[Rfam]
RNA sequence: AGUGCCCUGUACGUUGCGAAGUCCUAAGUUUCACUUGGGAAACGAAUUUAAUUUCAUAGCAGCUACGGGGCAUU
Numbered sequence: 001a002g003u004g005c006c007c008u009g010u011a012c013g014u015u016g017c018g019a020a021g022u023c024c025u026a027a028g029u030u031u032c033a034c035u036u037g038g039g040a041a042a043c044g045a046a047u048u049u050a051a052u053u054u055c056a057u058a059g060c061a062g063c064u065a066c067g068g069g070g071c072a073u074u
Stems, first nucleotide, its partner, number of pairs: 001074011014062004022040008